[Rfam]
Notes:
A member of the RNA family "mir-166 microRNA precursor family" from Ipomoea nil, 180 nucleotides long. Rfam's curators write: This family represents the plant microRNA (miRNA) precursor mir-166. The literature on the family includes a 2002 paper in Genes Dev by Reinhart et al., "MicroRNAs in plants". Rfam links the family to the GO terms miRNA-mediated post-transcriptional gene silencing and RISC complex. The family has 31 seed sequences and 2,599 matches in Rfam 15.1.
RNA sequence: UUUGAGGGGGAUGUUGGCUGGCUCGAUGCACUUACUUAUCAUCUUCCUCAAAAACAUGCGACAUAUACAUACAUAUGGAAGAUCAUAUAUCUAUAAAUAUAUAUUUGUCUUCCAUAUCCCAUAUAUAUAUGUUGAUGAUGGUGGAGUGAUGGCAUCGGACCAGGCUUCAUUCCUCCCAAA
Numbered sequence: 001u002u003u004g005a006g007g008g009g010g011a012u013g014u015u016g017g018c019u020g021g022c023u024c025g026a027u028g029c030a031c032u033u034a035c036u037u038a039u040c041a042u043c044u045u046c047c048u049c050a051a052a053a054a055c056a057u058g059c060g061a062c063a064u065a066u067a068c069a070u071a072c073a074u075a076u077g078g079a080a081g082a083u084c085a086u087a088u089a090u091c092u093a094u095a096a097a098u099a100u101a102u103a104u105u106u107g108u109c110u111u112c113c114a115u116a117u118c119c120c121a122u123a124u125a126u127a128u129a130u131g132u133u134g135a136u137g138a139u140g141g142u143g144g145a146g147u148g149a150u151g152g153c154a155u156c157g158g159a160c161c162a163g164g165c166u167u168c169a170u171u172c173c174u175c176c177c178a179a180a
Base pairs, nucleotide, nucleotide: 001180002179003178004177006175007174008173009172010171011170012169013168016165018163019162020161021160024157025156026155027154028153029152